[Rfam]
RNA sequence: AGGCUAUGAUGAGAUAUGGAGAAAGUCAUGCACCCCUCUAACAAUCUCAGAUGAUGAAAAAUUUCUCCUAACCAUAUAAUUUUCUGAGCUU
Numbered sequence: 001a002g003g004c005u006a007u008g009a010u011g012a013g014a015u016a017u018g019g020a021g022a023a024a025g026u027c028a029u030g031c032a033c034c035c036c037u038c039u040a041a042c043a044a045u046c047u048c049a050g051a052u053g054a055u056g057a058a059a060a061a062u063u064u065c066u067c068c069u070a071a072c073c074a075u076a077u078a079a080u081u082u083u084c085u086g087a088g089c090u091u
Base pairs, nucleotide, nucleotide: 001091002090003089004088

The family of this 91-nucleotide RNA sequence from Coffea canephora is "Small nucleolar RNA Z221/R21b". Pairs were carried over by alignment from the consensus structure, which was predicted with WAR. Gene Ontology terms of the family: RNA processing and nucleolus. The match comes from Rfam's covariance-model search (54 bits). Rfam classes the family as a C/D-box small nucleolar RNA.